[Rfam]
The family of this 88-nucleotide RNA from Calonectris borealis is "Small nucleolar RNA U83B". On this family, see Jady and Kiss, Nucleic Acids Res 2000: "Characterisation of the U83 and U84 small nucleolar RNAs: two novel 2'-O-ribose methylation guide RNAs that lack complementarities to ribosomal RNAs".
RNA sequence: GUCGUUCAAUGAUGAGGCGUGGAACAAGCACUGACAGUAUCCGACACCCGUGGGGAGUGGCUCUGCACAGAUUUCUUCUGAGAGCAGC
Numbered sequence: 001g002u003c004g005u006u007c008a009a010u011g012a013u014g015a016g017g018c019g020u021g022g023a024a025c026a027a028g029c030a031c032u033g034a035c036a037g038u039a040u041c042c043g044a045c046a047c048c049c050g051u052g053g054g055g056a057g058u059g060g061c062u063c064u065g066c067a068c069a070g071a072u073u074u075c076u077u078c079u080g081a082g083a084g085c086a087g088c
Stems, first nucleotide, its partner, number of pairs: 001088002004085002
Rfam describes the family as follows. U83B belongs to the C/D family of snoRNAs. U83B like U83A has no documented RNA target and they share the same host gene with the C/D box snoRNA U43 (RPL3). Pairs were carried over by alignment from the consensus structure. Gene Ontology terms of the family: nucleolus and RNA processing. The family's RNA type in Rfam is C/D-box small nucleolar RNA.